[Rfam]
RNA sequence: AAAGGAGCAAGAAACCCUUUCUUGUUUUAUCAAAAAGGGUUUCUUGCUCCUUAUAU
Numbered sequence: 001a002a003a004g005g006a007g008c009a010a011g012a013a014a015c016c017c018u019u020u021c022u023u024g025u026u027u028u029a030u031c032a033a034a035a036a037g038g039g040u041u042u043c044u045u046g047c048u049c050c051u052u053a054u055a056u
Stems, first nucleotide, its partner, number of pairs: 002052013019036002022033003
Overview:
A member of the RNA family "Plastid-psbA-3 3UTR RNA" from Mentha canadensis, 56 nucleotides long. Its Rfam clan is "Plastid-psbA 3UTR RNA clan". Rfam's curators put it in the seed alignment. NCBI's taxonomy places the organism under Eukaryota, Streptophyta, Mesangiospermae, Gunneridae, Mentha. Pairs were carried over by alignment from the consensus structure, which was predicted with LocARNA. Rfam's curators write: Plastid psbA-3 is a non-coding RNA (ncRNA) present in plastids. It was identified in inverted repeat sequences in the 3 prime untranslate region (3UTR) of photosystem II quinone-binding protein (psbA). Rfam classes the family as a cis-regulatory element.